[Rfam]
This 80-nucleotide RNA from Halonatronomonas betaini belongs to the Rfam family "c-di-GMP-I riboswitch aptamer". The source organism's lineage runs through Bacteria, Bacillota, Clostridia, Halanaerobiales and Halonatronomonas. Pairs were carried over by alignment from the consensus structure, which is taken from published work.
RNA sequence: CUUUGAUAAAGGCACCCCUGUCGUAAGGCAGGUCCGCAAAGCCUGAAGCCCAAUAGUUAUUGGGUGGUUCAGCUACCGAA
Number, nucleotide and partner (000 for none) at each position: 001c000002u000003u000004u000005g000006a000007u000008a000009a000010a000011g000012g037013c036014a000015c000016c000017c032018c031019u030020g029021u028022c027023g000024u000025a000026a000027g022028g021029c020030a019031g018032g017033u000034c000035c000036g013037c012038a000039a000040a074041g073042c072043c000044u000045g070046a069047a068048g065049c064050c063051c062052a061053a060054u059055a000056g000057u000058u000059a054060u053061u052062g051063g050064g049065u048066g000067g000068u047069u046070c045071a000072g042073c041074u040075a000076c000077c000078g000079a000080a000